[Rfam]
The record is a 268-nucleotide RNA from Penicillium arizonense, which matches "Fungal signal recognition particle RNA" in Rfam. Pairs were carried over by alignment from the consensus structure, which is taken from published work. Clan: SRP clan. Taxonomically the source falls in Penicillium (Eukaryota, Ascomycota, Pezizomycotina, Eurotiomycetes). By type it is a non-coding RNA gene.
RNA sequence: AAUCUGUCAUGGAUAACCUAGUGGGAGGCUCACCGCCAAGCCAGUAACCUUGCUUAGAGGAAACUCAGCUCGUACUGGUGCCUGGUACGAAUCCCGGGGUCGGCAUUUUCACUCGUGCGAGUAAUCCACGACGCUGGAGGCCGCUAAGCAAUGGAGAUGAACCUUGAGGGAAGCAAUUCUGCAGAGACAUCUCCACCCCAGGAUGGCGUCGCCAGAUUACACCGUCCCGUUACAGGGAAGUUGGCUAUUUGGUGUGACUACUACUUUU
Numbered sequence: 001a002a003u004c005u006g007u008c009a010u011g012g013a014u015a016a017c018c019u020a021g022u023g024g025g026a027g028g029c030u031c032a033c034c035g036c037c038a039a040g041c042c043a044g045u046a047a048c049c050u051u052g053c054u055u056a057g058a059g060g061a062a063a064c065u066c067a068g069c070u071c072g073u074a075c076u077g078g079u080g081c082c083u084g085g086u087a088c089g090a091a092u093c094c095c096g097g098g099g100u101c102g103g104c105a106u107u108u109u110c111a112c113u114c115g116u117g118c119g120a121g122u123a124a125u126c127c128a129c130g131a132c133g134c135u136g137g138a139g140g141c142c143g144c145u146a147a148g149c150a151a152u153g154g155a156g157a158u159g160a161a162c163c164u165u166g167a168g169g170g171a172a173g174c175a176a177u178u179c180u181g182c183a184g185a186g187a188c189a190u191c192u193c194c195a196c197c198c199c200a201g202g203a204u205g206g207c208g209u210c211g212c213c214a215g216a217u218u219a220c221a222c223c224g225u226c227c228c229g230u231u232a233c234a235g236g237g238a239a240g241u242u243g244g245c246u247a248u249u250u251g252g253u254g255u256g257a258c259u260a261c262u263a264c265u266u267u268u
Stems, first nucleotide, its partner, number of pairs: 002014003020265005026259001029256001031254005039246007048237003052069003056065002070229001072227001074225002077223004082215005087209003091204004096199004101143001102141001104139001106138003110133001113131005119126002144148001152195007163186003170179003